[Rfam]
RNA sequence: AGACCUGAAAUCAGUCGAGACUACCCGCUGAAUUUAAGCAUAUUAUUAAGCGGAGGAAAAGAAAAUAACUAUGAUUCCCCCAGUAACGGCGAGUGAAGCGGGAAGAGCUCAAAGUGAAAAUCGCGGAGUCGUGGCGGCAUCGCGAGUUGUAGCCUCUAGAGGCGCUACCAGUGGAAGGGCAGGUCCAAGUUUCUUGGAACAGAACUUCAGAGAGGGUGACAGUCCCGUCCCUUGUCCUGCUUUCUGUUUCCACGUACGGUGCGCUUUUAUUGAGUCGCGUUCAUUGGGAUUUGAGCGCAAAAUGUGUGAUAAGUUUCACAUAAAGCUAAAUAUUGGCGCGAGACCGAUAGCGAACAAGUACUGUGAAGGAAAGAUGAAAAGGACUUUGGAAAGAGAGUUAACAGUGUCUGAAAUUGCUGGAAGGGAAG
Numbered sequence: 001a002g003a004c005c006u007g008a009a010a011u012c013a014g015u016c017g018a019g020a021c022u023a024c025c026c027g028c029u030g031a032a033u034u035u036a037a038g039c040a041u042a043u044u045a046u047u048a049a050g051c052g053g054a055g056g057a058a059a060a061g062a063a064a065a066u067a068a069c070u071a072u073g074a075u076u077c078c079c080c081c082a083g084u085a086a087c088g089g090c091g092a093g094u095g096a097a098g099c100g101g102g103a104a105g106a107g108c109u110c111a112a113a114g115u116g117a118a119a120a121u122c123g124c125g126g127a128g129u130c131g132u133g134g135c136g137g138c139a140u141c142g143c144g145a146g147u148u149g150u151a152g153c154c155u156c157u158a159g160a161g162g163c164g165c166u167a168c169c170a171g172u173g174g175a176a177g178g179g180c181a182g183g184u185c186c187a188a189g190u191u192u193c194u195u196g197g198a199a200c201a202g203a204a205c206u207u208c209a210g211a212g213a214g215g216g217u218g219a220c221a222g223u224c225c226c227g228u229c230c231c232u233u234g235u236c237c238u239g240c241u242u243u244c245u246g247u248u249u250c251c252a253c254g255u256a257c258g259g260u261g262c263g264c265u266u267u268u269a270u271u272g273a274g275u276c277g278c279g280u281u282c283a284u285u286g287g288g289a290u291u292u293g294a295g296c297g298c299a300a301a302a303u304g305u306g307u308g309a310u311a312a313g314u315u316u317c318a319c320a321u322a323a324a325g326c327u328a329a330a331u332a333u334u335g336g337c338g339c340g341a342g343a344c345c346g347a348u349a350g351c352g353a354a355c356a357a358g359u360a361c362u363g364u365g366a367a368g369g370a371a372a373g374a375u376g377a378a379a380a381g382g383a384c385u386u387u388g389g390a391a392a393g394a395g396a397g398u399u400a401a402c403a404g405u406g407u408c409u410g411a412a413a414u415u416g417c418u419g420g421a422a423g424g425g426a427a428g
Base pairs, nucleotide, nucleotide: 024055025053026052027051028050029049035042036041065072066071076103077102078101079100086094087093106327107326108325109324115151116150118148119147121145122144123143124142125141126140159268160267161265162264163263164262166261167260168259169258171253172252173251174250175249176248177247179240180239181238182237183236185234189205191204192203193202194201208212215225216224277298278297279296280295281294282293283292304321305320306319307318308317361368362367384395385394386393387392

About this RNA
The record is a 428-nucleotide part of an RNA from Cyclospora cayetanensis, which matches "Eukaryotic large subunit ribosomal RNA" in Rfam. The family is grouped with related families in Rfam's "LSU clan".